[Rfam]
Description
This 513-nucleotide part of an RNA from Plasmodium falciparum belongs to the Rfam family "Eukaryotic large subunit ribosomal RNA".

Nucleotides: 513
Base pairs, nucleotide, nucleotide: 038192040190041189042188043187044186045185048179049178050177051176053083055081056080057079058078059077060076084137085136086135087134088133092131093130094129099124100123101122102121103118104117105116106115107114108113139174140173141172146167147166148165149164150163201406202405203404204403205402206401207400208399209398412510413509414508417431420428435502436501437500439498440497441495442494443493445488446487452482453481454480457478460475461474462473463472464471
Number, partner (000 for none) and nucleotide at each position: 001000g002000a003000a004000u005000u006000u007000u008000a009000u010000u011000a012000u013000a014000u015000u016000u017000u018000u019000u020000a021000u022000a023000u024000a025000u026000a027000u028000a029000u030000a031000u032000a033000c034000a035000u036000a037000u038192a039000a040190u041189a042188u043187u044186g045185u046000g047000a048179c049178a050177g051176u052000a053083a054000u055081c056080c057079a058078a059077c060076u061000u062000g063000g064000u065000a066000c067000g068000a069000g070000a071000g072000g073000a074000u075000u076060a077059g078058u079057u080056g081055g082000u083053u084137c085136a086135g087134a088133c089000a090000a091000u092131u093130g094129g095000u096000a097000c098000a099124g100123c101122a102121a103118u104117u105116g106115g107114u108113u109000g110000a111000u112000a113108a114107g115106c116105c117104a118103g119000u120000g121102u122101u123100g124099c125000g126000a127000a128000g129094c130093u131092a132000a133088g134087u135086c136085u137084g138000u139174u140173g141172g142000a143000u144000a145000a146167u147166g148165a149164c150163u151000g152000a153000a154000c155000g156000c157000c158000u159000c160000u161000u162000a163150a164149g165148u166147c167146a168000g169000a170000a171000c172141c173140c174139a175000u176051a177050c178049u179048g180000a181000u182000u183000a184000a185045a186044c187043a188042a189041u190040a191000c192038u193000a194000u195000u196000u197000c198000g199000u200000u201406c202405u203404u204403u205402u206401u207400g208399u209398u210000u211000a212000a213000a214000u215000a216000u217000a218000a219000a220000a221000a222000u223000a224000u225000u226000a227000u228000u229000a230000u231000u232000u233000u234000u235000u236000u237000u238000u239000a240000c241000u242000g243000c244000u245000a246000a247000u248000g249000u250000a251000a252000a253000u254000g255000a256000g257000a258000a259000a260000u261000u262000a263000u264000a265000c266000a267000u268000a269000u270000a271000u272000u273000a274000g275000a276000a277000a278000a279000a280000a281000a282000a283000u284000g285000u286000a287000a288000u289000u290000a291000a292000u293000u294000g295000u296000u297000u298000u299000u300000u301000u302000u303000u304000c305000g306000c307000u308000u309000u310000a311000u312000a313000a314000u315000a316000u317000a318000u319000c320000a321000a322000u323000a324000a325000u326000c327000c328000u329000a330000u331000c332000u333000u334000u335000u336000u337000a338000u339000a340000u341000a342000u343000a344000u345000g346000u347000a348000u349000g350000u351000g352000u353000a354000u355000a356000c357000a358000u359000a360000u361000a362000u363000a364000u365000a366000u367000a368000u369000a370000u371000g372000u373000a374000u375000a376000u377000a378000u379000a380000a381000a382000u383000a384000g385000a386000u387000u388000g389000u390000a391000a392000u393000u394000u395000a396000a397000c398209a399208a400207c401206a402205a403204a404203a405202a406201g407000u408000g409000u410000u411000a412510a413509g414508c415000a416000u417431a418000u419000u420428g421000u422000a423000g424000a425000c426000g427000a428420c429000u430000u431417u432000u433000c434000a435502g436501u437500c438000u439498c440497a441495g442494a443493g444000u445488g446487c447000u448000g449000u450000a451000a452482a453481c454480a455000u456000g457478a458000g459000a460475g461474u462473a463472a464471a465000c466000u467000a468000a469000g470000u471464u472463u473462u474461a475460c476000g477000a478457u479000c480454u481453g482452u483000u484000g485000a486000g487446g488445c489000u490000u491000a492000u493443c494442u495441c496000u497440u498439g499000u500437g501436a502435c503000a504000a505000u506000u507000a508414g509413c510412u511000a512000u513000u
Rfam links the family to the GO terms structural constituent of ribosome and ribosome. The source organism's lineage runs through Eukaryota, Sar, Alveolata, Apicomplexa and Plasmodium falciparum.